A member of the RNA family "Purine riboswitch aptamer" from Planococcus salinus, 102 nucleotides long.
RNA sequence: ACCCAUAUUAUAAAUCUGACUCAUAUAAUAGCGGGAAUAUGGCCCGCAAGUUUCUACCGGUUUGCCGUAAACAAACUGACUAUGAGAAGCAACGAAAUGACA
Numbered sequence: 001a002c003c004c005a006u007a008u009u010a011u012a013a014a015u016c017u018g019a020c021u022c023a024u025a026u027a028a029u030a031g032c033g034g035g036a037a038u039a040u041g042g043c044c045c046g047c048a049a050g051u052u053u054c055u056a057c058c059g060g061u062u063u064g065c066c067g068u069a070a071a072c073a074a075a076c077u078g079a080c081u082a083u084g085a086g087a088a089g090c091a092a093c094g095a096a097a098u099g100a101c102a
Stems, first nucleotide, its partner, number of pairs: 020086006029049001031047005058078007
The base pairs follow the family's consensus structure, which is taken from published work.